[Rfam]
RNA: Small nucleolar RNA SNORD99
Organism: Cyprinus carpio
RNA sequence: CCUGAUCAAGGAUGAGAUUUUUAUUGGUGACUGCUGGAUGAAACUUGCGGAUAUGGGACUGAGAUCAGUG
Numbered sequence: 001c002c003u004g005a006u007c008a009a010g011g012a013u014g015a016g017a018u019u020u021u022u023a024u025u026g027g028u029g030a031c032u033g034c035u036g037g038a039u040g041a042a043a044c045u046u047g048c049g050g051a052u053a054u055g056g057g058a059c060u061g062a063g064a065u066c067a068g069u070g
Stems, first nucleotide, its partner, number of pairs: 002068004